[Rfam]
RNA: Small nucleolar RNA R38
RNA sequence: GAUUGUGGAUGAUGAGAACAAAUAUGAAAAAACAGUUAUCCCUGUCUGAGGAUUUUAAUCCCUUUGAUGAUUCAUUUGUAAUCUGACACAACC
Numbered sequence: 001g002a003u004u005g006u007g008g009a010u011g012a013u014g015a016g017a018a019c020a021a022a023u024a025u026g027a028a029a030a031a032a033c034a035g036u037u038a039u040c041c042c043u044g045u046c047u048g049a050g051g052a053u054u055u056u057a058a059u060c061c062c063u064u065u066g067a068u069g070a071u072u073c074a075u076u077u078g079u080a081a082u083c084u085g086a087c088a089c090a091a092c093c
Stems, first nucleotide, its partner, number of pairs: 001093001003091005